RNA sequence: GUAGAGUAUUCAGAAUUGCGUUAGCAAUACCAACCGAGUGCGUACACCGCGGUGGUAAAAUAAUACGGGUCUUCAGCCAAAAUAAACGUUUCAU
Numbered sequence: 001g002u003a004g005a006g007u008a009u010u011c012a013g014a015a016u017u018g019c020g021u022u023a024g025c026a027a028u029a030c031c032a033a034c035c036g037a038g039u040g041c042g043u044a045c046a047c048c049g050c051g052g053u054g055g056u057a058a059a060a061u062a063a064u065a066c067g068g069g070u071c072u073u074c075a076g077c078c079a080a081a082a083u084a085a086a087c088g089u090u091u092c093a094u
Stems, first nucleotide, its partner, number of pairs: 006066005015028005029056003034052003038047002042089002068078003